[Rfam]
RNA sequence: GGGUCACUGAGUUCGUUUGGUGGGUAGAAGUGUGUCCAAUUCUCUAGCACCAUUUGAAUUCAGUUCAUC
Number, nucleotide and partner (000 for none) at each position: 001g069002g068003g000004u000005c000006a000007c063008u062009g061010a060011g059012u058013u057014c056015g055016u000017u000018u052019g051020g050021u049022g048023g000024g000025u046026a045027g044028a043029a000030g000031u000032g000033u000034g000035u000036c000037c000038a000039a000040u000041u000042c000043u028044c027045u026046a025047g000048c022049a021050c020051c019052a018053u000054u000055u015056g014057a013058a012059u011060u010061c009062a008063g007064u000065u000066c000067a000068u002069c001
RNA: mir-29 microRNA precursor family